[Rfam]
RNA sequence: UGUCCACUUGAUGGAACAUAGCAGAUGCACUCACUGUGCAACCUGUCGGAUUCCAACAAAUCUGUGAAUUCUGCU
Numbered sequence: 001u002g003u004c005c006a007c008u009u010g011a012u013g014g015a016a017c018a019u020a021g022c023a024g025a026u027g028c029a030c031u032c033a034c035u036g037u038g039c040a041a042c043c044u045g046u047c048g049g050a051u052u053c054c055a056a057c058a059a060a061u062c063u064g065u066g067a068a069u070u071c072u073g074c075u
Stems, first nucleotide, its partner, number of pairs: 013043002020075006027039003047064006
The family of this 75-nucleotide sequence from Alligator sinensis is "Mammalian CPEB3 ribozyme". The match comes from Rfam's covariance-model search (36 bits).